[Rfam]
RNA sequence: AGCCCCGCCGCGGGAGAGACCGUCCCGAAAUGGACGGCGCCGAAGGAGCAACCGCCCCGGAAACUCUCAGGCACAAAGGACCGCGCGCGGGUCG
Number, nucleotide and partner (000 for none) at each position: 001a000002g000003c000004c000005c000006c089007g088008c087009c085010g084011c083012g082013g081014g000015a000016g000017a000018g000019a000020c037021c036022g035023u034024c000025c000026c000027g000028a000029a000030a000031u000032g000033g000034a023035c022036g021037g020038c000039g072040c071041c070042g068043a067044a000045g000046g066047a065048g064049c000050a000051a000052c060053c059054g000055c000056c000057c000058c000059g053060g052061a000062a000063a000064c048065u047066c046067u043068c042069a000070g041071g040072c039073a000074c000075a000076a000077a000078g000079g000080a000081c013082c012083g011084c010085g009086c000087g008088c007089g006090g000091g000092u000093c000094g000
Glycine riboswitch aptamer: a 94-nucleotide RNA sequence from Roseiterribacter gracilis. The base pairs follow the family's consensus structure. This family represents the bacterial glycine riboswitch. Lineage of the source: Bacteria > Pseudomonadati > Pseudomonadota > Roseiterribacteraceae > Roseiterribacter.